mir-6790 microRNA precursor family: a 63-nucleotide RNA from Homo sapiens.
[Rfam]
RNA sequence: GUGAGUGUGGAUUUGGCGGGGUUCGGGGGUUCCGACGGCGACCUCGGCGACCCCUCACUCACC
Number, nucleotide and partner (000 for none) at each position: 001g062002u061003g060004a059005g058006u057007g056008u000009g054010g053011a000012u000013u050014u049015g048016g000017c046018g045019g044020g043021g042022u041023u040024c038025g000026g036027g000028g000029g000030u000031u000032c000033c000034g000035a000036c026037g000038g024039c000040g023041a022042c021043c020044u019045c018046g017047g000048c015049g014050a013051c000052c000053c010054c009055u000056c007057a006058c005059u004060c003061a002062c001063c000
Rfam's curators put it in the seed alignment.